[Rfam]
RNA: Histidine operon leader
RNA sequence: CCACCACCAUCAUCAUCCUGACUAGUUCUUUCAGGCGGAUGAGUGCUGGAAGACGGUCAACGGAUCUUCCAGUGGCGGCAGACGCAAGAUGUGAAAAAGCCCUCGGAAGAUCUUCUUCCGAGGGCUUUUUUGU
Numbered sequence: 001c002c003a004c005c006a007c008c009a010u011c012a013u014c015a016u017c018c019u020g021a022c023u024a025g026u027u028c029u030u031u032c033a034g035g036c037g038g039a040u041g042a043g044u045g046c047u048g049g050a051a052g053a054c055g056g057u058c059a060a061c062g063g064a065u066c067u068u069c070c071a072g073u074g075g076c077g078g079c080a081g082a083c084g085c086a087a088g089a090u091g092u093g094a095a096a097a098a099g100c101c102c103u104c105g106g107a108a109g110a111u112c113u114u115c116u117u118c119c120g121a122g123g124g125c126u127u128u129u130u131u132g133u
Stems, first nucleotide, its partner, number of pairs: 008045003011041004017035005046072008094130016